[Rfam]
This 170-nucleotide sequence from Lederbergia citrea belongs to the Rfam family "Manganese Mn2+ riboswitch aptamer (yybP-ykoY)".
Taxonomically the source falls in Lederbergia (Bacteria, Bacillota, Caryophanales, Bacillaceae).
The family has 29 seed sequences and 1,126 matches in Rfam 15.1.
About the family: This RNA was originally discovered in E. coli during a large scale screen and was named SraF. The family was later found to exist upstream of related families of protein genes in many bacteria, including the the yybP and ykoK genes in B. subtilis. The specific functions of these proteins are unknown, but this structured RNA element may be involved in their genetic regulation as a riboswitch.
RNA sequence: CUUUCAGUCAAAGGGGAGUAGCGGUAGGUGAGAUCGAGUCGAUCCACCUAAAACAAAGUCGUCAUUUCGUGAAGUCAUUCACCGGCUUUGUUGGCAUUACAUAUGUCAAGCAAGACCUUUGCCCAUUAGGCAGAGGUCUUUUUGUAUUUCAUUUUCAAUCAAAAAUAUCU
Numbered sequence: 001c002u003u004u005c006a007g008u009c010a011a012a013g014g015g016g017a018g019u020a021g022c023g024g025u026a027g028g029u030g031a032g033a034u035c036g037a038g039u040c041g042a043u044c045c046a047c048c049u050a051a052a053a054c055a056a057a058g059u060c061g062u063c064a065u066u067u068c069g070u071g072a073a074g075u076c077a078u079u080c081a082c083c084g085g086c087u088u089u090g091u092u093g094g095c096a097u098u099a100c101a102u103a104u105g106u107c108a109a110g111c112a113a114g115a116c117c118u119u120u121g122c123c124c125a126u127u128a129g130g131c132a133g134a135g136g137u138c139u140u141u142u143u144g145u146a147u148u149u150c151a152u153u154u155u156c157a158a159u160c161a162a163a164a165a166u167a168u169c170u
Base pairs, nucleotide, nucleotide: 025050026049027048028047029046030045052092053091054090055089056088057087058086059085060084061083069082070081071080072079073078093169094168096166097165098164